[Rfam]
RNA sequence: CUAUACUGUUCCUAAUUAUUCUGUCUCUAUCUCAUUCAUAGAGAACGGAU
Numbered sequence: 001c002u003a004u005a006c007u008g009u010u011c012c013u014a015a016u017u018a019u020u021c022u023g024u025c026u027c028u029a030u031c032u033c034a035u036u037c038a039u040a041g042a043g044a045a046c047g048g049a050u
Base pairs, nucleotide, nucleotide: 006048007047008046009045010044011043
Source information: Rfam assigns this 50-nucleotide sequence from Liriodendron chinense to the family "Plastid-rpoB 5UTR RNA". Plastid rpoB is a non-coding RNA (ncRNA) recognised in plastids. The family has 49 seed sequences and 102 matches in Rfam 15.1. NCBI's taxonomy places the organism under Eukaryota, Viridiplantae, Spermatophyta, Magnoliaceae, Liriodendron. On this family, see Richter et al., Plant Commun 2023: "Retrograde signaling in plants: A critical review focusing on the GUN pathway and beyond". The base pairs follow the family's consensus structure, which was predicted with LocARNA. The family's RNA type in Rfam is cis-regulatory element.